The family of this 52-nucleotide RNA sequence from Segnochrobactrum spirostomi is "ffh sRNA". The organism belongs to Segnochrobactrum, within Bacteria. The family's consensus secondary structure is taken from published work.
RNA sequence: GUGUCCGGAGGUCAACGCCCGCCAGCGAUAUUCGCCCGCGGGCGUGUUUUGC
Number, nucleotide and partner (000 for none) at each position: 001g000002u000003g000004u000005c000006c000007g000008g000009a000010g000011g000012u000013c000014a000015a000016c044017g043018c042019c041020c040021g039022c038023c000024a000025g035026c034027g033028a032029u000030a000031u000032u028033c027034g026035c025036c000037c000038g022039c021040g020041g019042g018043c017044g016045u000046g000047u000048u000049u000050u000051g000052c000